A member of the RNA family "Mammalian CPEB3 ribozyme" from Alligator mississippiensis, 77 nucleotides long. Rfam links the family to the GO term RNA nuclease activity. Rfam describes the family as follows. The mammalian CPEB3 ribozyme is a self cleaving RNA located in the second intron of the CPEB3 gene which belongs to a family of genes regulating messenger RNA polyadenylation. The match comes from Rfam's covariance-model search (39 bits).

RNA sequence: GAUCAAAAGUUUGAGGCCAUAGCAGAAGCGCUUAUGGCAUAGCCCUGUCAUAUUUCAACAAAUCUGCAAAUCCUGCU
Numbered sequence: 001g002a003u004c005a006a007a008a009g010u011u012u013g014a015g016g017c018c019a020u021a022g023c024a025g026a027a028g029c030g031c032u033u034a035u036g037g038c039a040u041a042g043c044c045c046u047g048u049c050a051u052a053u054u055u056c057a058a059c060a061a062a063u064c065u066g067c068a069a070a071u072c073c074u075g076c077u
Base pairs, nucleotide, nucleotide: 013045015044016043017042021077022076023075024074025073027071028040030038049066050065052063053062054061055060
Dot-bracket structure: ............[.[[[...(((((.((.(.......).).]]]]...((.((((....)))).))....).)))))